[Rfam]
RNA sequence: GGUAGAGAGAGCCCGGCCGCCGCGACGUGGCCCUGCCACGACGUGAGGAAAGUCCCCCCACCGUCCGGACAGGUGGCCGGACGCAAGUCCGGAGCGGGAGACCGCUGGCUCUGGAACAGAAACGAGACCCCUCGCCCCGAGCGAUGAGGCGCGGACGGUGACGCGAGUCACCGCCCGGCGCGAACGGCGUGAGCCGCGAGCGCGCGAACCGACCCGCAAGGGAAGGAAGCUGACCCGCCGAGCGCGUGUGGUCGCAUCCGCGACCACGCCCGGGCACGCGGCGCAGCCGCGUGUCGACGGGCGAGAACGGAUGGAACGGCGAAUCCCCACCGGUGCAAGUCCGCGCCGCUAGGUAGUCCGGACGAGGCGACGGACGCUCAGCCGAAUGCCGGGACGAACAGAAGGGGGCUUACUCCUCUCAACC
Numbered sequence: 001g002g003u004a005g006a007g008a009g010a011g012c013c014c015g016g017c018c019g020c021c022g023c024g025a026c027g028u029g030g031c032c033c034u035g036c037c038a039c040g041a042c043g044u045g046a047g048g049a050a051a052g053u054c055c056c057c058c059c060a061c062c063g064u065c066c067g068g069a070c071a072g073g074u075g076g077c078c079g080g081a082c083g084c085a086a087g088u089c090c091g092g093a094g095c096g097g098g099a100g101a102c103c104g105c106u107g108g109c110u111c112u113g114g115a116a117c118a119g120a121a122a123c124g125a126g127a128c129c130c131c132u133c134g135c136c137c138c139g140a141g142c143g144a145u146g147a148g149g150c151g152c153g154g155a156c157g158g159u160g161a162c163g164c165g166a167g168u169c170a171c172c173g174c175c176c177g178g179c180g181c182g183a184a185c186g187g188c189g190u191g192a193g194c195c196g197c198g199a200g201c202g203c204g205c206g207a208a209c210c211g212a213c214c215c216g217c218a219a220g221g222g223a224a225g226g227a228a229g230c231u232g233a234c235c236c237g238c239c240g241a242g243c244g245c246g247u248g249u250g251g252u253c254g255c256a257u258c259c260g261c262g263a264c265c266a267c268g269c270c271c272g273g274g275c276a277c278g279c280g281g282c283g284c285a286g287c288c289g290c291g292u293g294u295c296g297a298c299g300g301g302c303g304a305g306a307a308c309g310g311a312u313g314g315a316a317c318g319g320c321g322a323a324u325c326c327c328c329a330c331c332g333g334u335g336c337a338a339g340u341c342c343g344c345g346c347c348g349c350u351a352g353g354u355a356g357u358c359c360g361g362a363c364g365a366g367g368c369g370a371c372g373g374a375c376g377c378u379c380a381g382c383c384g385a386a387u388g389c390c391g392g393g394a395c396g397a398a399c400a401g402a403a404g405g406g407g408g409c410u411u412a413c414u415c416c417u418c419u420c421a422a423c424c
Stems, first nucleotide, its partner, number of pairs: 001424003005420005010414002012393006021045004050411003054408005059335004064362006072331005077092005093106005107326002112322001114320001128310002131305007339375004344369004
RNA: Archaeal RNase P
Organism: Haloarchaeobius iranensis